The family of this 83-nucleotide RNA sequence from Monodelphis domestica is "Small nucleolar RNA U2-19".
Lineage of the source: Eukaryota > Deuterostomia > Amniota > Mammalia > Monodelphis.
The base pairs follow the family's consensus structure, which is taken from published work.

RNA sequence: GACCAAUAAUGAAAGAUAGCCAGAUAUGAAUAUCAGUAGACCUUCUGGUCUUUGUGGUACAUGAUCUGUCUGUGUUUCUGAGA
Dot-bracket structure: ..............................((((...((((......))))....))))........................
The match comes from Rfam's covariance-model search (62 bits).